[Rfam]
RNA sequence: GCCUUCUCAUUGAGCUCCUCCUUGUCUGCCAGUGACGGGGUAUGGAUUCGCACGAGAAGAACAUGAACUUCAUGCCUUGUGUAGUCGUGUCCCCCGCCAUCUCGGGGGAGGCUCCUGCCAGGCCGUGGGACAAGU
Dot-bracket structure: ..((((((.....(((((...(((((.......))))).....)))...))..))))))..........(((((................((((((......))))))...............))))).......

Annotation
The record is a 135-nucleotide RNA from Sarcophilus harrisii, which matches "Small nucleolar RNA SNORA75" in Rfam. A search with the family's covariance model found it, with a score of 88 bits. A reference for the family is Ganot et al. (1997), "The family of box ACA small nucleolar RNAs is defined by an evolutionarily conserved secondary structure and ubiquitous sequence elements essential for RNA accumulation", Genes Dev. The source organism's lineage runs through Eukaryota, Deuterostomia, Metatheria, Dasyuridae and Sarcophilus. About the family: U23 belongs to the H/ACA class of snoRNAs. snoRNAs bind a number of proteins (including dyskerin, Gar1p and Nop10p in the case of the H/ACA class) to form snoRNP complexes. This class are thought to guide the sites of modification of uridines to pseudouridines by forming direct base pairing interactions with substrate RNAs.